Notes:
The record is a 72-nucleotide RNA sequence from Amphibalanus amphitrite, which matches "mir-252 microRNA precursor family" in Rfam. Rfam links the family to the GO terms miRNA-mediated post-transcriptional gene silencing and RISC complex. A reference for the family is Ruby et al. (2006), "Large-scale sequencing reveals 21U-RNAs and additional microRNAs and endogenous siRNAs in C. elegans", Cell. NCBI's taxonomy places the organism under Eukaryota, Bilateria, Pancrustacea, Thecostraca, Amphibalanus. Its Rfam clan is "mir-252 microRNA precursor family". The family's consensus secondary structure was predicted with RNAalifold.
RNA sequence: GUCCGUUCCUAAGUACUGGUGCCGCAGGUGGUCACUUUGAAGCCCCUGUGACUCGAGUUCUUAACAACGGCG
Numbered sequence: 001g002u003c004c005g006u007u008c009c010u011a012a013g014u015a016c017u018g019g020u021g022c023c024g025c026a027g028g029u030g031g032u033c034a035c036u037u038u039g040a041a042g043c044c045c046c047u048g049u050g051a052c053u054c055g056a057g058u059u060c061u062u063a064a065c066a067a068c069g070g071c072g
Stems, first nucleotide, its partner, number of pairs: 003070005010063004015058003019054001024049005030043001
Dot-bracket structure: ..(((((..((((.(((.(....(((((.(............).)))))....).))).))))..)))))..